RNA sequence: GCGGUCUGAAAAUCACUCGGGGUCUGCUGUGGCCCCGGGUGAGAUAACGGCGCCCACAGCAUCGGGAACAUUAAGCUUAUUGCCCACGUCUGUGUGUGGGGAAUGAAACCCAUGUUCCCAUAAGC
Numbered sequence: 001g002c003g004g005u006c007u008g009a010a011a012a013u014c015a016c017u018c019g020g021g022g023u024c025u026g027c028u029g030u031g032g033c034c035c036c037g038g039g040u041g042a043g044a045u046a047a048c049g050g051c052g053c054c055c056a057c058a059g060c061a062u063c064g065g066g067a068a069c070a071u072u073a074a075g076c077u078u079a080u081u082g083c084c085c086a087c088g089u090c091u092g093u094g095u096g097u098g099g100g101g102a103a104u105g106a107a108a109c110c111c112a113u114g115u116u117c118c119c120a121u122a123a124g125c
Base pairs, nucleotide, nucleotide: 006050007049008048010045013042014041015040016039021034022033023032024031065118067116068115069114070113071112077106078105079104080103081102085096086095087094
Overview: This 125-nucleotide RNA sequence from Oreocharis arfaki belongs to the Rfam family "Small nucleolar RNA ACA64". A reference for the family is Schattner et al. (2006), "A computational screen for mammalian pseudouridylation guide H/ACA RNAs", RNA. NCBI's taxonomy places the organism under Eukaryota, Saurischia, Theropoda, Paramythiidae, Oreocharis.